Background
This 148-nucleotide RNA sequence from Hoeflea prorocentri belongs to the Rfam family "Alphaproteobacterial sRNA ar7". The literature on the family includes a 2012 paper in RNA Biol by del Val et al., "A survey of sRNA families in alpha-proteobacteria". The base pairs follow the family's consensus structure.
RNA sequence: CACCGGCAAGCAAAAAUGCCGAUGUCUGGCGAGAGGCAUGUCCCCCGCCACGCCGGACACGAGCGGCGACCUCAUCCCCCCCUCUCCGGGUCGCCGCUCACAUCCCCAACGCCACCGUGACUAUCCCCUCCAGCCACGGUGGCACUUU
Dot-bracket structure: ........................(((((((...(((.........))).)))))))...(((((((((((.................)))))))))))............((((((((.((.........)).))))))))......
Numbered sequence: 001c002a003c004c005g006g007c008a009a010g011c012a013a014a015a016a017u018g019c020c021g022a023u024g025u026c027u028g029g030c031g032a033g034a035g036g037c038a039u040g041u042c043c044c045c046c047g048c049c050a051c052g053c054c055g056g057a058c059a060c061g062a063g064c065g066g067c068g069a070c071c072u073c074a075u076c077c078c079c080c081c082c083u084c085u086c087c088g089g090g091u092c093g094c095c096g097c098u099c100a101c102a103u104c105c106c107c108a109a110c111g112c113c114a115c116c117g118u119g120a121c122u123a124u125c126c127c128c129u130c131c132a133g134c135c136a137c138g139g140u141g142g143c144a145c146u147u148u
Stems, first nucleotide, its partner, number of pairs: 025057007035049003061099011112142008121133002

The family's RNA type in Rfam is small RNA.